[Rfam]
RNA sequence: UAGGAGAAUCUGUAAAGCUCAGGAGGGAUAGCGCCAUGUAUAUGACGCCGAUGGAUAAUGAUAAUGGUGGGUAUGUGUGUUUUUGAUUUUCACAUGUUUUGGUCAUCAAUAGCGCUGUCUAUCCUGAGUUUCAUGGUUUCUUCUU
Number, nucleotide and partner (000 for none) at each position: 001u000002a000003g000004g000005a000006g000007a000008a000009u000010c136011u000012g000013u000014a000015a000016a130017g129018c128019u127020c126021a125022g124023g123024a122025g000026g120027g119028a118029u117030a116031g115032c114033g113034c112035c000036a000037u000038g000039u000040a000041u000042a000043u000044g000045a000046c000047g000048c000049c000050g000051a000052u000053g000054g000055a000056u000057a000058a000059u000060g000061a000062u000063a000064a000065u000066g000067g000068u000069g000070g000071g000072u000073a000074u000075g000076u000077g000078u000079g000080u000081u000082u000083u000084u000085g000086a000087u000088u000089u000090u000091c000092a000093c000094a000095u000096g000097u000098u000099u000100u000101g000102g000103u000104c000105a000106u000107c000108a000109a000110u000111a000112g034113c033114g032115c031116u030117g029118u028119c027120u026121a000122u024123c023124c022125u021126g020127a019128g018129u017130u016131u000132c000133a000134u000135g000136g010137u000138u000139u000140c000141u000142u000143c000144u000145u000
This 145-nucleotide RNA from Tetracentron sinense belongs to the Rfam family "MIR390 microRNA precursor family". Its family is annotated with RISC complex and miRNA-mediated post-transcriptional gene silencing in the Gene Ontology. Rfam 15.1 lists 649 matches to the family in 206 species. The match comes from Rfam's covariance-model search (93 bits). The organism belongs to Tetracentron, within Eukaryota. Pairs were carried over by alignment from the consensus structure, which was predicted with WAR.